[Rfam]
RNA sequence: CUUGUUGAUGAUGAUUUACUUACCUACAUUGUAUGAUUACCUGUGAUUUGACUGGAAUCUGAGAACAAG
Numbered sequence: 001c002u003u004g005u006u007g008a009u010g011a012u013g014a015u016u017u018a019c020u021u022a023c024c025u026a027c028a029u030u031g032u033a034u035g036a037u038u039a040c041c042u043g044u045g046a047u048u049u050g051a052c053u054g055g056a057a058u059c060u061g062a063g064a065a066c067a068a069g
Stems, first nucleotide, its partner, number of pairs: 001069002004066001005064002
Small nucleolar RNA SNORD34: a 69-nucleotide sequence from Nephila pilipes. Taxonomically the source falls in Nephila (Eukaryota, Metazoa, Protostomia, Nephilidae). On this family, see Galardi et al., Mol Cell Biol 2002: "Purified box C/D snoRNPs are able to reproduce site-specific 2'-O-methylation of target RNA in vitro". The family's RNA type in Rfam is C/D-box small nucleolar RNA. It scores 42 bits against the family's covariance model. Rfam's curators write: snoRNA U34 is found in intron 5 of the ribosomal protein L13a gene in humans.